[Rfam]
RNA: RtT RNA
RNA sequence: GCCAUGAUGCACCCGGGAGGGUGAGAACCCUCGCAGGGUUCGACAAAACAAAGUUUUGGAUGGCCGCAGGCCACCCGCAGGGCGUGCAGCAACGCUGCGCGUCUAUCCCUCCCUCACCGCCA
Numbered sequence: 001g002c003c004a005u006g007a008u009g010c011a012c013c014c015g016g017g018a019g020g021g022u023g024a025g026a027a028c029c030c031u032c033g034c035a036g037g038g039u040u041c042g043a044c045a046a047a048a049c050a051a052a053g054u055u056u057u058g059g060a061u062g063g064c065c066g067c068a069g070g071c072c073a074c075c076c077g078c079a080g081g082g083c084g085u086g087c088a089g090c091a092a093c094g095c096u097g098c099g100c101g102u103c104u105a106u107c108c109c110u111c112c113c114u115c116a117c118c119g120c121c122a
Stems, first nucleotide, its partner, number of pairs: 015113007022105001032084002034081001039079001041077002045055002062072004